[Rfam]
RNA: Pseudomonas sRNA CrcZ
Organism: Pseudomonas corrugata
RNA sequence: AUAACAAGAAUAAAAAAAGCGGCAAACCCAAUAAAAACAAGACGAAACGACUCUGACAUAACAAAAACAACACGGCAGAGACGCAGCUAACAGAUUUUUUUGGAGAAGAUGGGCUUUUCAGGGUGCUUCCAGGAGCAACCCGCAACCGGGCAGAGAACAAUAAGACUACCUUCAGGUAGGACCCGAAUCGGUUGGAUCGCAUGGCGAAAAAGCAGAUCAGCGCUCAAAAAAAUACGUUUGCUCUUGAUCCCGGAUGGGGAUCGCGAAAAACAGCGGUAAAGGGUCACGGCUACCAAAAACAACAACAGGCCGCCCCUCAAUAAUAAAAAAAGAGCACGCGACGACAAAAUUAAAGGGGAGCUUCGGCUCCCCUUUGUGCUGUCUGGCGAUUGGCUUUUCUUGUGGGA
Numbered sequence: 001a002u003a004a005c006a007a008g009a010a011u012a013a014a015a016a017a018a019g020c021g022g023c024a025a026a027c028c029c030a031a032u033a034a035a036a037a038c039a040a041g042a043c044g045a046a047a048c049g050a051c052u053c054u055g056a057c058a059u060a061a062c063a064a065a066a067a068c069a070a071c072a073c074g075g076c077a078g079a080g081a082c083g084c085a086g087c088u089a090a091c092a093g094a095u096u097u098u099u100u101u102g103g104a105g106a107a108g109a110u111g112g113g114c115u116u117u118u119c120a121g122g123g124u125g126c127u128u129c130c131a132g133g134a135g136c137a138a139c140c141c142g143c144a145a146c147c148g149g150g151c152a153g154a155g156a157a158c159a160a161u162a163a164g165a166c167u168a169c170c171u172u173c174a175g176g177u178a179g180g181a182c183c184c185g186a187a188u189c190g191g192u193u194g195g196a197u198c199g200c201a202u203g204g205c206g207a208a209a210a211a212g213c214a215g216a217u218c219a220g221c222g223c224u225c226a227a228a229a230a231a232a233u234a235c236g237u238u239u240g241c242u243c244u245u246g247a248u249c250c251c252g253g254a255u256g257g258g259g260a261u262c263g264c265g266a267a268a269a270a271c272a273g274c275g276g277u278a279a280a281g282g283g284u285c286a287c288g289g290c291u292a293c294c295a296a297a298a299a300c301a302a303c304a305a306c307a308g309g310c311c312g313c314c315c316c317u318c319a320a321u322a323a324u325a326a327a328a329a330a331a332g333a334g335c336a337c338g339c340g341a342c343g344a345c346a347a348a349a350u351u352a353a354a355g356g357g358g359a360g361c362u363u364c365g366g367c368u369c370c371c372c373u374u375u376g377u378g379c380u381g382u383c384u385g386g387c388g389a390u391u392g393g394c395u396u397u398u399c400u401u402g403u404g405g406g407a
Stems, first nucleotide, its partner, number of pairs: 048083002051080004098229005113221002143194007166179005247261005283387004287312004334379004353374009
Dot-bracket structure: ...............................................((.((((......................)))).))..............(((((..........((............................(((((((................(((((....)))))........))))))).........................))...))))).................(((((.....))))).....................((((((((..................)))).....................((((...............(((((((((....))))))))).))))....))))....................